About this RNA
The family of this 156-nucleotide sequence from Clonostachys rosea is "Small nucleolar RNA snR80". The source organism's lineage runs through Eukaryota, Opisthokonta, Fungi, Hypocreales and Clonostachys. Clan: SNORA28 clan. For this family Rfam cites "Genome-wide searching for pseudouridylation guide snoRNAs: analysis of the Saccharomyces cerevisiae genome" (Schattner et al., Nucleic Acids Res, 2004). Rfam links the family to the GO terms RNA processing and nucleolus.
RNA sequence: GCACCCUUGACUUCACUCUGAAAUGUACCAUACUUCUCAGUGGUACUUUUCAAUUUUUGUCCAAGGAAGAUUACGUAUUUAGCAGACCUCAUACUCACCGCUGCAUUCUGGGCUCGCCCCUAAAUGGAUGUCGCGGUCCAUUGAUUAGGCCUACAU
Numbered sequence: 001g002c003a004c005c006c007u008u009g010a011c012u013u014c015a016c017u018c019u020g021a022a023a024u025g026u027a028c029c030a031u032a033c034u035u036c037u038c039a040g041u042g043g044u045a046c047u048u049u050u051c052a053a054u055u056u057u058u059g060u061c062c063a064a065g066g067a068a069g070a071u072u073a074c075g076u077a078u079u080u081a082g083c084a085g086a087c088c089u090c091a092u093a094c095u096c097a098c099c100g101c102u103g104c105a106u107u108c109u110g111g112g113c114u115c116g117c118c119c120c121u122a123a124a125u126g127g128a129u130g131u132c133g134c135g136g137u138c139c140a141u142u143g144a145u146u147a148g149g150c151c152u153a154c155a156u
Base pairs, nucleotide, nucleotide: 007064008063009062019052020051021050022049023048026045027044028043029042085151087149088148098136099135100134101133103131104130105129107128108127109126